The record is a 66-nucleotide RNA sequence from Gallus gallus, which matches "mir-3064 microRNA precursor family" in Rfam.
NCBI's taxonomy places the organism under Eukaryota, Opisthokonta, Metazoa, Deuterostomia, Gallus.
The family's consensus secondary structure was predicted with RNAalifold.
Its family is annotated with RISC complex and miRNA-mediated post-transcriptional gene silencing in the Gene Ontology.

[Rfam]
RNA sequence: GAUUUGGCUGUUGUGGUGUGCAAAACUUUGUACCUUGCUUUUUGCCACACUGCAACACUUUACAGA
Number, nucleotide and partner (000 for none) at each position: 001g000002a000003u062004u000005u000006g059007g058008c000009u057010g056011u055012u054013g053014u052015g051016g050017u049018g048019u047020g046021c044022a043023a042024a041025a040026c000027u000028u000029u000030g038031u037032a036033c000034c000035u000036u032037g031038c030039u000040u025041u024042u023043u022044g021045c000046c020047a019048c018049a017050c016051u015052g014053c013054a012055a011056c010057a009058c007059u006060u000061u000062a003063c000064a000065g000066a000